[Rfam]
RNA: Selenocysteine transfer RNA
Organism: Ishigurovirus osborne
RNA sequence: GGAAGGUCAACCCGACGGUAGGCGACGGGAGCGGUCUUGAAAACCGCCGAGGCGUAACAGCGCCUUGUGAGUUCGAUCCUCACAUCUUCC
Numbered sequence: 001g002g003a004a005g006g007u008c009a010a011c012c013c014g015a016c017g018g019u020a021g022g023c024g025a026c027g028g029g030a031g032c033g034g035u036c037u038u039g040a041a042a043a044c045c046g047c048c049g050a051g052g053c054g055u056a057a058c059a060g061c062g063c064c065u066u067g068u069g070a071g072u073u074c075g076a077u078c079c080u081c082a083c084a085u086c087u088u089c090c
Stems, first nucleotide, its partner, number of pairs: 001090007011029004016024001031047005050065005068082004